[Rfam]
RNA sequence: CUUGAUCGCGCCCAGCAGCAGCGGGUUCUCCCGCUCCUGCCCGUAGGUCGCCAGCAGCGCCUGGGCUUC
Numbered sequence: 001c002u003u004g005a006u007c008g009c010g011c012c013c014a015g016c017a018g019c020a021g022c023g024g025g026u027u028c029u030c031c032c033g034c035u036c037c038u039g040c041c042c043g044u045a046g047g048u049c050g051c052c053a054g055c056a057g058c059g060c061c062u063g064g065g066c067u068u069c
Stems, first nucleotide, its partner, number of pairs: 014026001016024001028065003032059002037054003041050001043048001

The record is a 69-nucleotide RNA sequence from Saccharopolyspora gloriosae, which matches "ASpks TB sRNA" in Rfam. A search with the family's covariance model found it, with a score of 62 bits. It is annotated as an antisense RNA. Pairs were carried over by alignment from the consensus structure, which is taken from published work. The organism belongs to Saccharopolyspora, within Bacteria.